[Rfam]
RNA: Mammalian CPEB3 ribozyme
RNA sequence: AGUUGCAAAUUUAAGGCCAUGGCAGGAGUGUGUACCACAUGGCCCUCUCAGAUUCUACUGAAUCUGUGAAUUCUGCU
Number, nucleotide and partner (000 for none) at each position: 001a000002g000003u000004u000005g000006c000007a000008a000009a000010u000011u000012u000013a000014a000015g044016g043017c042018c041019a000020u000021g077022g076023c075024a074025g073026g072027a071028g040029u039030g038031u000032g000033u000034a000035c000036c000037a000038c030039a029040u028041g018042g017043c016044c015045c000046u000047c000048u000049c066050a065051g064052a063053u062054u061055c060056u000057a000058c000059u000060g055061a054062a053063u052064c051065u050066g049067u000068g000069a000070a000071u027072u026073c025074u024075g023076c022077u021